[Rfam]
RNA: mir-30 microRNA precursor family
Organism: Eleutherodactylus coqui
RNA sequence: GCAGGGCUUGUAAACAUCCUACACUCUCAGCUGUGAAUAUGAUAUGGCUGGGAGAAGGGUGUUUACCCCCUCUGC
Numbered sequence: 001g002c003a004g005g006g007c008u009u010g011u012a013a014a015c016a017u018c019c020u021a022c023a024c025u026c027u028c029a030g031c032u033g034u035g036a037a038u039a040u041g042a043u044a045u046g047g048c049u050g051g052g053a054g055a056a057g058g059g060u061g062u063u064u065a066c067c068c069c070c071u072c073u074g075c
Stems, first nucleotide, its partner, number of pairs: 002074005010066011024054009